[Rfam]
RNA sequence: ACCGAGCGGCGGAUGGAGCCCGCUCGGUCUCGCACGUCCGCGAUACCGAGCGGACUCCGUCGCCGCUCCGG
Numbered sequence: 001a002c003c004g005a006g007c008g009g010c011g012g013a014u015g016g017a018g019c020c021c022g023c024u025c026g027g028u029c030u031c032g033c034a035c036g037u038c039c040g041c042g043a044u045a046c047c048g049a050g051c052g053g054a055c056u057c058c059g060u061c062g063c064c065g066c067u068c069c070g071g
Base pairs, nucleotide, nucleotide: 004068005067006066007065008064009063010062015058016057017056018055020053021052022051023050024049025048026047027046028045030043031042032041033040

The record is a 71-nucleotide RNA sequence from Roseolovirus humanbeta6b, which matches "mir-Ro6-3 microRNA precursor family" in Rfam. Rfam's curators put it in the seed alignment. The family's consensus secondary structure was predicted with RNAalifold.